The record is a 62-nucleotide RNA from Streptomyces flaveus, which matches "Streptomyces RNA 2736" in Rfam. The organism belongs to Streptomyces, within Bacteria. It is annotated as a small RNA.
RNA sequence: CGCCCGGCCGGAUCCCGUGGGGGGAAUCCGAACCGGGACAAGGAAGGCGCCCCGACUCCGGC
Numbered sequence: 001c002g003c004c005c006g007g008c009c010g011g012a013u014c015c016c017g018u019g020g021g022g023g024g025a026a027u028c029c030g031a032a033c034c035g036g037g038a039c040a041a042g043g044a045a046g047g048c049g050c051c052c053c054g055a056c057u058c059c060g061g062c
Stems, first nucleotide, its partner, number of pairs: 001060002003037005009030005014024003042051002